[Rfam]
The record is a 73-nucleotide sequence from Taxus chinensis, which matches "Plastid-ycf2 5UTR RNA" in Rfam.
A reference for the family is Richter et al. (2023), "Retrograde signaling in plants: A critical review focusing on the GUN pathway and beyond", Plant Commun.
The source organism's lineage runs through Eukaryota, Pinopsida, Conifers II, Taxaceae and Taxus.
The base pairs follow the family's consensus structure, which was predicted with LocARNA.
From the family's description: Plastid ycf2 is a non-coding RNA (ncRNA) recognised in plastids.
RNA sequence: AUGCAUCCAACAUGAAUCGUACCUGUGACUUCCCAAUCAUGAGUUGGGUGCUUUUACCAUUUAGCCGUGGAUG
Numbered sequence: 001a002u003g004c005a006u007c008c009a010a011c012a013u014g015a016a017u018c019g020u021a022c023c024u025g026u027g028a029c030u031u032c033c034c035a036a037u038c039a040u041g042a043g044u045u046g047g048g049u050g051c052u053u054u055u056a057c058c059a060u061u062u063a064g065c066c067g068u069g070g071a072u073g
Base pairs, nucleotide, nucleotide: 004073005072006071007070008069010026011025012024014022039068040067041066043065044064045063046062047061048060049059050058
Dot-bracket structure: ...(((((.(((.(.......).)))............(((.((((((((.......))))))))))))))))